[Rfam]
RNA sequence: CUCACCCAGGGCUCCUGUAGCUCAGGGGGCAGGCCUGAGCCCUGCGUCCGCCGACGGCCAUCCAGCCCCCCGACGGGGCACCCCGACCUGAGGGGCCCCGCGCUGGCCCCCACCGACGCAGGGCAUCUGACAGGCUCCGAGCUCGGCUGGAUGUUACAGGCGUGCACA
Numbered sequence: 001c002u003c004a005c006c007c008a009g010g011g012c013u014c015c016u017g018u019a020g021c022u023c024a025g026g027g028g029g030c031a032g033g034c035c036u037g038a039g040c041c042c043u044g045c046g047u048c049c050g051c052c053g054a055c056g057g058c059c060a061u062c063c064a065g066c067c068c069c070c071c072g073a074c075g076g077g078g079c080a081c082c083c084c085g086a087c088c089u090g091a092g093g094g095g096c097c098c099c100g101c102g103c104u105g106g107c108c109c110c111c112a113c114c115g116a117c118g119c120a121g122g123g124c125a126u127c128u129g130a131c132a133g134g135c136u137c138c139g140a141g142c143u144c145g146g147c148u149g150g151a152u153g154u155u156a157c158a159g160g161c162g163u164g165c166a167c168a
Base pairs, nucleotide, nucleotide: 008043009042010041011040012039013038014037017034018033020030021029022028023027044163045162046161047160048159050157059153060152061151062150063149064148067095068094069093070092074090075089076088077087079085098139100137104129105127106126109123110122111121141147142146
Shown here is a 168-nucleotide sequence from Urocitellus parryii, a member of the family "Spi-1 (PU.1) 5' UTR regulatory element". Its family is annotated with translation repressor activity in the Gene Ontology. The family's RNA type in Rfam is cis-regulatory element. Lineage of the source: Eukaryota > Mammalia > Glires > Rodentia > Urocitellus. About the family: Spi-1 regulates myeloid gene expression during haemopoietic development. This family represents a regulatory element found in the 5' UTR of Spi-1 mRNA which is able to inhibit the translation Spi-1 transcripts by 8-fold. The literature on the family includes a 1997 paper in Nucleic Acids Res by Hensold et al., "The conserved 5'-untranslated leader of Spi-1 (PU.1) mRNA is highly structured and potently inhibits translation in vitro but not in vivo". The base pairs follow the family's consensus structure, which is taken from published work. It scores 136 bits against the family's covariance model.